[Rfam]
RNA sequence: GUACUAAAAAGGCAAACUCUGCGAAAGCAGGGGACGCAAAGUCACUGAUCUAACGGGAAAAUCCCCAUGAUGGCAGGACUGCAGGU
Numbered sequence: 001g002u003a004c005u006a007a008a009a010a011g012g013c014a015a016a017c018u019c020u021g022c023g024a025a026a027g028c029a030g031g032g033g034a035c036g037c038a039a040a041g042u043c044a045c046u047g048a049u050c051u052a053a054c055g056g057g058a059a060a061a062u063c064c065c066c067a068u069g070a071u072g073g074c075a076g077g078a079c080u081g082c083a084g085g086u
Stems, first nucleotide, its partner, number of pairs: 012037002017032006040080004045076003048071003055065004